[Rfam]
RNA: DUF805 RNA
Organism: Chitinophaga solisilvae
RNA sequence: GAUCAGUGGAGCAGUAACCACUUAAAAAACGGGCGCCACCGAAAAGCCAGACGAGUAGGAACAAA
Numbered sequence: 001g002a003u004c005a006g007u008g009g010a011g012c013a014g015u016a017a018c019c020a021c022u023u024a025a026a027a028a029a030c031g032g033g034c035g036c037c038a039c040c041g042a043a044a045a046g047c048c049a050g051a052c053g054a055g056u057a058g059g060a061a062c063a064a065a
Base pairs, nucleotide, nucleotide: 006021007020008019009018032048033047034046039059040058
Dot-bracket structure: .....((((........))))..........(((....[[.....))).........]]......